[Rfam]
RNA sequence: GUUGGAAUUCAAGGCUAUAGCAGAAGUGCUUAUAGUGCAGCCCUGUCACAUCCCAACAAAUGUGCAAAUUCUGCU
Number, nucleotide and partner (000 for none) at each position: 001g000002u000003u000004g000005g000006a000007a000008u000009u000010c000011a000012a000013g042014g041015c040016u039017a000018u000019a075020g074021c073022a072023g071024a070025a069026g038027u037028g036029c000030u000031u000032a000033u000034a000035g000036u028037g027038c026039a016040g015041c014042c013043c000044u000045g000046u000047c064048a063049c062050a061051u060052c000053c000054c000055a000056a000057c000058a000059a000060a051061u050062g049063u048064g047065c000066a000067a000068a000069u025070u024071c023072u022073g021074c020075u019
Annotation: The family of this 75-nucleotide RNA sequence from Crocodylus porosus is "Mammalian CPEB3 ribozyme". The family has 14 seed sequences and 5,706 matches in Rfam 15.1. Gene Ontology term of the family: RNA nuclease activity. Pairs were carried over by alignment from the consensus structure, which is taken from published work.